[Rfam]
The record is a 130-nucleotide RNA sequence from Aquarana catesbeiana, which matches "Small Cajal body specific RNA 15" in Rfam. The family is grouped with related families in Rfam's "SCARNA4 clan". Rfam 15.1 lists 635 matches to the family in 528 species. The organism belongs to Aquarana, within Eukaryota. About the family: scaRNAs are a specific class of small nuclear RNAs which localise to the Cajal bodies and guide the modification of RNA polymerase II transcribed spliceosomal RNAs U1, U2, U4, U5 and U12. ACA45 belongs to the H/ACA box class of guide RNAs as it has the predicted hairpin-hinge-hairpin-tail structure, the conserved H/ACA-box motifs and is found associated with GAR1. ACA45 is predicted to guide the pseudouridylation of residue U37 of the U2 spliceosomal snRNA.

RNA sequence: ACGGAGGACUAAGAAAGUAAAUCCAGAGAAGUUAUUUGGAUUUUACUGAUACUAUCCUCCUAAAGAAAAUGAUAGAAGAACAGGUCUGACUACAAGGUGUGUGAAGGACCUACUUAAUCUAUCAACACUG
Number, nucleotide and partner (000 for none) at each position: 001a000002c000003g060004g059005a058006g057007g056008a055009c000010u051011a050012a000013g000014a000015a000016a000017g000018u045019a044020a043021a042022u000023c000024c039025a036026g035027a000028g033029a000030a000031g000032u000033u028034a000035u026036u025037u000038g000039g024040a000041u000042u021043u020044u019045a018046c000047u000048g000049a000050u011051a010052c000053u000054a000055u008056c007057c006058u005059c004060c003061u000062a000063a000064a000065g000066a000067a000068a000069a000070u000071g123072a122073u121074a120075g119076a118077a115078g000079a000080a000081c000082a111083g110084g109085u108086c107087u105088g000089a000090c000091u000092a000093c000094a000095a000096g000097g000098u000099g000100u000101g000102u000103g000104a000105a087106g000107g086108a085109c084110c083111u082112a000113c000114u000115u077116a000117a000118u076119c075120u074121a073122u072123c071124a000125a000126c000127a000128c000129u000130g000